This 172-nucleotide RNA from Firmicutes bacterium CAG:882 belongs to the Rfam family "Clostridiales-1 RNA". The family's consensus secondary structure is taken from published work. Rfam classes the family as a small RNA.
[Rfam]
RNA sequence: UAUGAGCCGGCGUCAGGUGACGAAAAAGCCGUCAUGCUUGCAUGUAAGGCUCUUUCGUCAUUUGACGCUGCAACAGUAAUGAGGAAAACAGCACUGCGACAGCGGUGCGAUUUCCGAAUGAAUGUCAGGGCUUGCGGGAGUGCGUAGCACGGAGCAAGACUGGAAGCUCAUA
Number, nucleotide and partner (000 for none) at each position: 001u172002a171003u170004g169005a168006g167007c166008c000009g000010g068011c067012g066013u065014c000015a000016g062017g061018u060019g059020a058021c057022g056023a055024a054025a053026a000027a051028g050029c049030c048031g000032u000033c044034a043035u042036g041037c000038u000039u000040g000041c036042a035043u034044g033045u000046a000047a000048g030049g029050c028051u027052c000053u025054u024055u023056c022057g021058u020059c019060a018061u017062u016063u000064g000065a013066c012067g011068c010069u000070g000071c000072a000073a125074c124075a123076g000077u121078a000079a119080u118081g000082a000083g115084g114085a113086a112087a000088a000089c000090a000091g108092c107093a106094c105095u104096g103097c102098g000099a000100c000101a000102g097103c096104g095105g094106u093107g092108c091109g000110a000111u000112u086113u085114c084115c083116g000117a000118a080119u079120g000121a077122a000123u075124g074125u073126c000127a000128g000129g161130g160131c158132u157133u156134g155135c154136g000137g000138g000139a000140g150141u149142g148143c147144g000145u000146a000147g143148c142149a141150c140151g000152g000153a000154g135155c134156a133157a132158g131159a000160c130161u129162g000163g000164a000165a000166g007167c006168u005169c004170a003171u002172a001